[Rfam]
RNA sequence: GGUUGCAAGUUUGAGGCCUCAGCAGAAGUGCUUGCAGUAUGGCCCUGGCAGAUUCCAACAAAUCUGCAAAUUCUGCU
Numbered sequence: 001g002g003u004u005g006c007a008a009g010u011u012u013g014a015g016g017c018c019u020c021a022g023c024a025g026a027a028g029u030g031c032u033u034g035c036a037g038u039a040u041g042g043c044c045c046u047g048g049c050a051g052a053u054u055c056c057a058a059c060a061a062a063u064c065u066g067c068a069a070a071u072u073c074u075g076c077u
Stems, first nucleotide, its partner, number of pairs: 013045001015044004021077007028040003049066006
The record is a 77-nucleotide RNA sequence from Alligator mississippiensis, which matches "Mammalian CPEB3 ribozyme" in Rfam. Lineage of the source: Eukaryota > Craniata > Dipnotetrapodomorpha > Alligatorinae > Alligator. It scores 40 bits against the family's covariance model.